[Rfam]
RNA sequence: CAACAACCGAAAGGAGGUGAUCCAGUGUCUCAUUGUCUCUACCCGCGUUCGCUGGGUGCCCUGAGCCUGAUCCCUGCCUCUGUCGGGGUAUCCGGGGUCUCCUGACACCCGUCUACGGCCGGUAUCGGCGCGUCAUCGCGCCUGACCGGUCGAAACGCGGUUCGACAAUGGGGGGUCGCUCCGAAAGGAGCGGCCC
Numbered sequence: 001c002a003a004c005a006a007c008c009g010a011a012a013g014g015a016g017g018u019g020a021u022c023c024a025g026u027g028u029c030u031c032a033u034u035g036u037c038u039c040u041a042c043c044c045g046c047g048u049u050c051g052c053u054g055g056g057u058g059c060c061c062u063g064a065g066c067c068u069g070a071u072c073c074c075u076g077c078c079u080c081u082g083u084c085g086g087g088g089u090a091u092c093c094g095g096g097g098u099c100u101c102c103u104g105a106c107a108c109c110c111g112u113c114u115a116c117g118g119c120c121g122g123u124a125u126c127g128g129c130g131c132g133u134c135a136u137c138g139c140g141c142c143u144g145a146c147c148g149g150u151c152g153a154a155a156c157g158c159g160g161u162u163c164g165a166c167a168a169u170g171g172g173g174g175g176u177c178g179c180u181c182c183g184a185a186a187g188g189a190g191c192g193g194c195c196c
Stems, first nucleotide, its partner, number of pairs: 016023002031170007044069002047066005070098005099130001101128001105123002109118003136160005173196010
caulobacter sRNA CC2171: a 196-nucleotide RNA from Allostella humosa. It is annotated as a small RNA. A search with the family's covariance model found it, with a score of 86 bits.